[Rfam]
This 71-nucleotide sequence from Ipomoea nil belongs to the Rfam family "Plastid-ycf2 5UTR RNA". About the family: Plastid ycf2 is a non-coding RNA (ncRNA) recognised in plastids. It was found in the prime untranslated region (5UTR) of ycf2 genes, it presents a tRNA-like motif which suggests it can be involved in mRNA maturation, particularly involved in defining the precise 5' end of the transcript. The match comes from Rfam's covariance-model search (68 bits). NCBI's taxonomy places the organism under Eukaryota, Embryophyta, eudicotyledons, Gunneridae, Ipomoea.
RNA sequence: GUGCAUCCAGUAGGAAUUGAACCUACGACUUCGCAAUUAUGAGUUGGCGCUUUCACACUCAGCAUGGAUGC
Numbered sequence: 001g002u003g004c005a006u007c008c009a010g011u012a013g014g015a016a017u018u019g020a021a022c023c024u025a026c027g028a029c030u031u032c033g034c035a036a037u038u039a040u041g042a043g044u045u046g047g048c049g050c051u052u053u054c055a056c057a058c059u060c061a062g063c064a065u066g067g068a069u070g071c
Base pairs, nucleotide, nucleotide: 003071004070005069006068007067008066010026011025012024013023014022039065040064041063044062045061046060047058049056